[Rfam]
RNA: A. fumigatus sRNA Afu_254
Organism: Aspergillus pseudonomiae
RNA sequence: AUCCAAGCCUUCAAUUCGAGUUAUAAAACCCCUUCGAGAAACCUCUCAAAGCUUUCCACUUCCAUCAAAAUGUCUCCCUGCUCUUGCAACUGCUGCAGCGGUAACUGCGCUAGCUGCUCCUGCUCUUCCUGCAGCGUAAGUGACC
Numbered sequence: 001a002u003c004c005a006a007g008c009c010u011u012c013a014a015u016u017c018g019a020g021u022u023a024u025a026a027a028a029c030c031c032c033u034u035c036g037a038g039a040a041a042c043c044u045c046u047c048a049a050a051g052c053u054u055u056c057c058a059c060u061u062c063c064a065u066c067a068a069a070a071u072g073u074c075u076c077c078c079u080g081c082u083c084u085u086g087c088a089a090c091u092g093c094u095g096c097a098g099c100g101g102u103a104a105c106u107g108c109g110c111u112a113g114c115u116g117c118u119c120c121u122g123c124u125c126u127u128c129c130u131g132c133a134g135c136g137u138a139a140g141u142g143a144c145c
Stems, first nucleotide, its partner, number of pairs: 079103004086096003107132003116123002